The record is a 93-nucleotide RNA sequence from Thermaerobacter marianensis, which matches "c-di-GMP-I-GGC riboswitch aptamer" in Rfam. The family is grouped with related families in Rfam's "c-di-GMP_I riboswitch clan". The match comes from Rfam's covariance-model search (63 bits). The family's consensus secondary structure is taken from published work. Taxonomically the source falls in Thermaerobacter marianensis (Bacteria, Bacillati, Clostridia, Eubacteriales). For this family Rfam cites "Bioinformatic analysis of riboswitch structures uncovers variant classes with altered ligand specificity" (Weinberg et al., Proc Natl Acad Sci U S A, 2017).
RNA sequence: AGCGACAAAGGCACCCCUGCCGAAAGGCAGGCUCGCAAAGUCACGGGUCUACGGUCCCGCUCCGGCGGGACUAUGACGGCCGGACUGCCGAAG
Number, nucleotide and partner (000 for none) at each position: 001a000002g000003c090004g089005a000006c000007a000008a000009a000010g000011g036012c035013a000014c000015c000016c031017c030018u029019g028020c027021c026022g000023a000024a000025a000026g021027g020028c019029a018030g017031g016032c000033u000034c079035g012036c011037a000038a000039a086040g085041u084042c083043a000044c082045g081046g080047g077048u076049c075050u000051a000052c000053g000054g000055u000056c000057c000058c000059g000060c000061u000062c000063c000064g000065g000066c000067g000068g000069g000070a000071c000072u000073a000074u000075g049076a048077c047078g000079g034080c046081c045082g044083g042084a041085c040086u039087g000088c000089c004090g003091a000092a000093g000